Overview
The family of this 125-nucleotide RNA from Myotis lucifugus is "Small nucleolar RNA SNORA77". The base pairs follow the family's consensus structure, which was predicted with RNAalifold. On this family, see Schattner et al., RNA 2006: "A computational screen for mammalian pseudouridylation guide H/ACA RNAs". NCBI's taxonomy places the organism under Eukaryota, Eumetazoa, Eutheria, Chiroptera, Myotis.
[Rfam]
RNA sequence: GCAGACUCACUCUGCACCCGGCUGCAGUCCCAGACGGGUGCUUUUUCAGUCUGCCACAGAAACAUUCCAGGGACUGCGACUACCUUGACCUGUGCAGGGUGACGCAGCUGCCCGGGGACAUGGUG
Number, nucleotide and partner (000 for none) at each position: 001g054002c053003a052004g051005a050006c049007u000008c000009a000010c000011u000012c000013u000014g041015c040016a039017c038018c037019c036020g035021g000022c033023u032024g031025c000026a000027g000028u000029c000030c000031c024032a023033g022034a000035c020036g019037g018038g017039u016040g015041c014042u000043u000044u000045u000046u000047c000048a000049g006050u005051c004052u003053g002054c001055c000056a000057c000058a000059g000060a000061a000062a000063c000064a000065u000066u116067c115068c114069a000070g112071g111072g000073a000074c107075u106076g105077c104078g103079a000080c000081u101082a100083c099084c098085u097086u000087g000088a000089c000090c000091u000092g000093u000094g000095c000096a000097g085098g084099g083100u082101g081102a000103c078104g077105c076106a075107g074108c000109u000110g000111c071112c070113c000114g068115g067116g066117g000118a000119c000120a000121u000122g000123g000124u000125g000